A member of the RNA family "tRNA" from Carya illinoinensis, 72 nucleotides long. The source organism's lineage runs through Eukaryota, Magnoliopsida, Gunneridae, Juglandaceae and Carya. Transfer RNA (tRNA) molecules are approximately 80 nucleotides in length.
[Rfam]
Nucleotides: 072
Base pairs, nucleotide, nucleotide: 001071002070003069004068005067006066007065010024011023012022013021026042027041028040029039030038048064049063051061052060
Number, partner (000 for none) and nucleotide at each position: 001071g002070g003069a004068u005067c006066c007065g008000u009000g010024g011023u012022g013021c014000a015000a016000u017000g018000g019000u020000a021013g022012c023011g024010c025000g026042u027041c028040u029039g030038a031000c032000u033000c034000c035000a036000g037000a038030u039029c040028a041027g042026a043000a044000g045000g046000u047000u048064g049063u050000c051061u052060g053000u054000u055000c056000g057000a058000u059000u060052c061051a062000c063049g064048u065007c066006g067005g068004g069003u070002u071001c072000a